[Rfam]
RNA sequence: AGAGGAGCAAUAGCACCCUCUUGAUAGAACAAGAAAAUGAUUAUUGCUCCUUACUCA
Numbered sequence: 001a002g003a004g005g006a007g008c009a010a011u012a013g014c015a016c017c018c019u020c021u022u023g024a025u026a027g028a029a030c031a032a033g034a035a036a037a038u039g040a041u042u043a044u045u046g047c048u049c050c051u052u053a054c055u056c057a
Base pairs, nucleotide, nucleotide: 002052003051004050005049006048007047008046009045010044011043012042013041014039019034020033021032022031023030